[Rfam]
RNA: U5 spliceosomal RNA
RNA sequence: AUGUUGUGUUAGUUUCUGCUGUAUAAAUCUUUCGCCUUUUACUAAAGAUUUCUGUGGAAAAGAACAGAAACAGUUAUCUUUCAAAGUAACUUAAAAACAAGAAAAAUGUUUAU
Numbered sequence: 001a002u003g004u005u006g007u008g009u010u011a012g013u014u015u016c017u018g019c020u021g022u023a024u025a026a027a028u029c030u031u032u033c034g035c036c037u038u039u040u041a042c043u044a045a046a047g048a049u050u051u052c053u054g055u056g057g058a059a060a061a062g063a064a065c066a067g068a069a070a071c072a073g074u075u076a077u078c079u080u081u082c083a084a085a086g087u088a089a090c091u092u093a094a095a096a097a098c099a100a101g102a103a104a105a106a107u108g109u110u111u112a113u
Base pairs, nucleotide, nucleotide: 003074004073005072006071009064010063013060014059015058016057017056018055025051026050027049028048029047030046031045032044095111096110097109098108099107